[Rfam]
RNA sequence: CCUGCCGAAGUUUCCCUCAGGAUAGCAGAAACUCGUGUGUCAGAUUUAUGUGGUAAAGCGAAUGAUUAGAGGCCUUGGGGUCGCAAUGACCUUAACCUAUUCUCAAACUUUAAAUAUGUAAGAACGAGCCGUCCCUUGGUUGGACCGCUCGGCGAUUGAGAGUUUCUAGUGGGCCAUUUUUGGUAAGCAGAACUGGCGAUGCGGGAUGAACCGAACGUGAGGUUAAGGUGCCGGAAUACAUGCUCAUAAGAUAUCACAAAAGGUGUUAGUUCAUCUAGACAGCAGGACGGUGGCCAUGGAAGUCGGAAUCCGCUAAGGAGUGUGUAACAACUCACCUGCCGAAUGAACUAGCCCUGAAAAUGGAUGGCGCUCAAGCAUGUUACCCAUACCUCACCGUCAGCGUUGAAGUGAAGCGCUGACGAGUAGGCAGGCGCGGAGGUCCGUGAAGAAGCCCUGGCGGCGACGUCGGGUGGAACGGCCUCUGGUGCAGAU
Number, nucleotide and partner (000 for none) at each position: 001c431002c430003u429004g428005c427006c426007g000008a000009a000010g000011u024012u000013u022014c021015c020016c000017u000018c000019a000020g015021g014022a013023u000024a011025g000026c000027a167028g166029a165030a164031a163032c162033u161034c000035g000036u000037g000038u000039g000040u000041c000042a000043g000044a000045u122046u121047u120048a119049u118050g117051u116052g000053g000054u000055a000056a111057a109058g108059c000060g000061a000062a000063u105064g104065a103066u000067u000068a100069g000070a098071g097072g096073c000074c000075u095076u094077g093078g092079g091080g090081u000082c088083g000084c000085a000086a000087u000088g082089a000090c080091c079092u078093u077094a076095a075096c072097c071098u070099a000100u068101u000102c000103u065104c064105a063106a000107a000108c058109u057110u000111u056112a000113a000114a000115u000116a051117u050118g049119u048120a047121a046122g045123a000124a000125c151126g150127a149128g148129c147130c000131g145132u144133c143134c000135c000136u000137u000138g000139g000140u000141u000142g000143g133144a132145c131146c000147g129148c128149u127150c126151g125152g000153c000154g000155a000156u000157u000158g000159a000160g000161a033162g032163u031164u030165u029166c028167u027168a000169g000170u000171g000172g000173g197174c196175c195176a194177u000178u192179u191180u190181u189182g188183g000184u000185a000186a000187g000188c182189a181190g180191a179192a178193c000194u176195g175196g174197c173198g000199a000200u000201g000202c213203g212204g211205g000206a000207u000208g000209a000210a000211c204212c203213g202214a000215a000216c000217g394218u393219g392220a391221g390222g000223u388224u000225a000226a000227g384228g383229u382230g000231c000232c000233g000234g000235a000236a381237u000238a380239c000240a000241u377242g376243c375244u000245c000246a000247u000248a000249a000250g000251a000252u000253a000254u000255c000256a000257c000258a000259a000260a000261a355262g354263g353264u000265g352266u351267u350268a349269g348270u347271u346272c345273a344274u343275c000276u000277a000278g000279a000280c000281a000282g339283c338284a337285g336286g335287a000288c312289g311290g310291u000292g000293g000294c306295c305296a000297u000298g000299g000300a000301a000302g000303u000304c000305g295306g294307a000308a000309u000310c290311c289312g288313c317314u000315a000316a000317g313318g333319a000320g000321u000322g331323u330324g000325u000326a000327a000328c000329a000330a323331c322332u000333c318334a000335c286336c285337u284338g283339c282340c000341g000342a000343a274344u273345g272346a271347a270348c269349u268350a267351g266352c265353c263354c262355u261356g000357a000358a000359a000360a000361u000362g000363g000364a000365u000366g000367g000368c000369g000370c000371u000372c000373a000374a000375g243376c242377a241378u000379g000380u238381u236382a229383c228384c227385c000386a000387u000388a223389c000390c221391u220392c219393a218394c217395c421396g420397u419398c418399a417400g416401c415402g414403u413404u000405g000406a000407a000408g000409u000410g000411a000412a000413g403414c402415g401416c400417u399418g398419a397420c396421g395422a000423g000424u000425a000426g006427g005428c004429a003430g002431g001432c487433g000434c484435g483436g482437a481438g480439g479440u478441c477442c000443g476444u475445g000446a000447a000448g000449a000450a000451g471452c470453c000454c000455u000456g000457g466458c465459g464460g000461c000462g000463a000464c459465g458466u457467c000468g000469g000470g452471u451472g000473g000474a000475a444476c443477g441478g440479c439480c438481u437482c436483u435484g434485g000486u000487g432488c000489a000490g000491a000492u000
Shown here is a 492-nucleotide part of an RNA from Sparassis crispa, a member of the family "Eukaryotic large subunit ribosomal RNA". The family has 88 seed sequences and 107,465 matches in Rfam 15.1. Pairs were carried over by alignment from the consensus structure, which is taken from published work.